[Rfam]
Mammalian CPEB3 ribozyme: an 80-nucleotide sequence from Crocodylus porosus. From the family's description: The mammalian CPEB3 ribozyme is a self cleaving RNA located in the second intron of the CPEB3 gene which belongs to a family of genes regulating messenger RNA polyadenylation. The family's consensus secondary structure is taken from published work. NCBI's taxonomy places the organism under Eukaryota, Craniata, Gnathostomata, Amniota, Crocodylus.
RNA sequence: AGAGGUCACAAGUCUGAGGCCAUAGCAGAAGCACUCAUGCUGCAGCCAUGCCAGACUCCAACAAAUCUGCAAAUUCUAUU
Numbered sequence: 001a002g003a004g005g006u007c008a009c010a011a012g013u014c015u016g017a018g019g020c021c022a023u024a025g026c027a028g029a030a031g032c033a034c035u036c037a038u039g040c041u042g043c044a045g046c047c048a049u050g051c052c053a054g055a056c057u058c059c060a061a062c063a064a065a066u067c068u069g070c071a072a073a074u075u076c077u078a079u080u
Stems, first nucleotide, its partner, number of pairs: 013048001018047003024080002027077004031043003052069004057064001